[Rfam]
RNA sequence: CAAGGUUCUGGGUGUGACUCCCAGAAGGCUAGUCCGGCCGCCGAUCCGCCGGAAAACC
Numbered sequence: 001c002a003a004g005g006u007u008c009u010g011g012g013u014g015u016g017a018c019u020c021c022c023a024g025a026a027g028g029c030u031a032g033u034c035c036g037g038c039c040g041c042c043g044a045u046c047c048g049c050c051g052g053a054a055a056a057c058c
Stems, first nucleotide, its partner, number of pairs: 006026006033053006